This 102-nucleotide RNA sequence from Microcebus murinus belongs to the Rfam family "Y RNA". The base pairs follow the family's consensus structure, which is taken from published work. Rfam describes the family as follows. Y RNAs are components of the Ro ribonucleoprotein particle (Ro RNP), in association with Ro60 and La proteins. The Y RNAs and Ro60 and La proteins are well conserved, but the function of the Ro RNP is not known. In humans the RNA component can be one of four small RNAs -- hY1, hY3, hY4 and hY5. These small RNAs are predicted to fold into a conserved secondary structure containing three stem structures. The largest of the four, hY1, contains an additional hairpin. This family includes a significant number of annotated pseudogenes and the model is expected to discriminate poorly between real and Y RNA related pseudogenes. The family's RNA type in Rfam is non-coding RNA gene. Taxonomically the source falls in Microcebus (Eukaryota, Opisthokonta, Metazoa, Craniata).
[Rfam]
RNA sequence: GGCUGAUCUGAAUGCAGUGGUGUUUACAACUAAUUGAUCACAACCACUUACAGAUUUCUCUGUUGCUUCUCUACUCCUACUGCUUCAUUUGACUAGCCUUAA
Numbered sequence: 001g002g003c004u005g006a007u008c009u010g011a012a013u014g015c016a017g018u019g020g021u022g023u024u025u026a027c028a029a030c031u032a033a034u035u036g037a038u039c040a041c042a043a044c045c046a047c048u049u050a051c052a053g054a055u056u057u058c059u060c061u062g063u064u065g066c067u068u069c070u071c072u073a074c075u076c077c078u079a080c081u082g083c084u085u086c087a088u089u090u091g092a093c094u095a096g097c098c099u100u101a102a
Base pairs, nucleotide, nucleotide: 001098002097003096004095005094007092008091010090011089014086016081017080018079019078020077022076032064033063034062036060037059